[Rfam]
RNA sequence: UUGGCGGUGUUUUUGGUUGGAAUGUAGUACUAACUUAACGUACUAAACGCUGCCAUGAAUAACCUGUCAGUUAUUUCAUUCAAAAAUUAA
Numbered sequence: 001u002u003g004g005c006g007g008u009g010u011u012u013u014u015g016g017u018u019g020g021a022a023u024g025u026a027g028u029a030c031u032a033a034c035u036u037a038a039c040g041u042a043c044u045a046a047a048c049g050c051u052g053c054c055a056u057g058a059a060u061a062a063c064c065u066g067u068c069a070g071u072u073a074u075u076u077c078a079u080u081c082a083a084a085a086a087u088u089a090a
Stems, first nucleotide, its partner, number of pairs: 011085006019077006025045006049071004